[Rfam]
RNA sequence: UAGCACUUGAUACUAGCCGAGCUAUCUGUGUCCUAGCCUUGAUGAAAGGCUUGUGAUACGAUGUGAUAGCUGGGUUUAAAAAGUGCAAUAUUAAAACAAAAGCCAUGAGUCUUUUAAGCCCAGUGUGUAAAGAUACACUCUGAGUUAUAACUCACAGGUACAGCU
Number, nucleotide and partner (000 for none) at each position: 001u000002a000003g086004c085005a084006c083007u082008u081009g000010a000011u000012a000013c000014u000015a076016g075017c074018c073019g000020a071021g070022c069023u068024a067025u066026c065027u060028g059029u058030g057031u056032c055033c053034u000035a051036g050037c049038c048039u047040u046041g000042a000043u000044g000045a000046a040047a039048g038049g037050c036051u035052u000053g033054u000055g032056a031057u030058a029059c028060g027061a000062u000063g000064u000065g026066a025067u024068a023069g022070c021071u020072g000073g018074g017075u016076u015077u000078a000079a000080a000081a008082a007083g006084u005085g004086c003087a000088a000089u000090a000091u000092u000093a000094a000095a000096a000097c000098a000099a000100a000101a000102g159103c158104c157105a000106u000107g000108a000109g000110u000111c000112u000113u000114u000115u000116a000117a000118g000119c000120c000121c000122a000123g138124u137125g136126u135127g134128u133129a000130a000131a000132g000133a128134u127135a126136c125137a124138c123139u156140c000141u154142g153143a152144g151145u150146u000147a000148u000149a000150a145151c144152u143153c142154a141155c000156a139157g104158g103159u102160a000161c000162a000163g000164c000165u000
Small Cajal body specific RNA 1: a 165-nucleotide RNA from Sorex araneus. A reference for the family is Darzacq et al. (2002), "Cajal body-specific small nuclear RNAs: a novel class of 2'-O-methylation and pseudouridylation guide RNAs", EMBO J. Rfam classes the family as a small Cajal body RNA. Rfam's curators put it in the seed alignment. About the family: scaRNAs are a specific class of small nuclear RNAs which localise to the Cajal bodies and guide the modification of RNA polymerase II transcribed spliceosomal RNAs U1, U2, U4, U5 and U12. ACA35 belong to the H/ACA box class of guide RNAs as it has the predicted hairpin-hinge-hairpin-tail structure, conserved H/ACA-box motifs and is found associated with GAR1. It is predicted to guide pseudouridylation of the U2 spliceosomal snRNA at residue U89.